The family of this 66-nucleotide RNA from Jiulongibacter sediminis is "DUF805 RNA". Rfam 15.1 lists 281 matches to the family in 219 species.
Nucleotides: 066
Base pairs, nucleotide, nucleotide: 007020008019009018033049034048035047040060041059
Number, partner (000 for none) and nucleotide at each position: 001000g002000a003000a004000a005000a006000a007020u008019g009018g010000a011000g012000c013000g014000g015000u016000a017000a018009c019008c020007a021000a022000u023000u024000a025000c026000a027000a028000a029000a030000a031000c032000g033049g034048g035047a036000g037000g038000a039000g040060u041059c042000g043000a044000a045000a046000a047035u048034c049033c050000a051000a052000a053000a054000g055000a056000g057000u058000a059041g060040a061000a062000a063000a064000c065000u066000a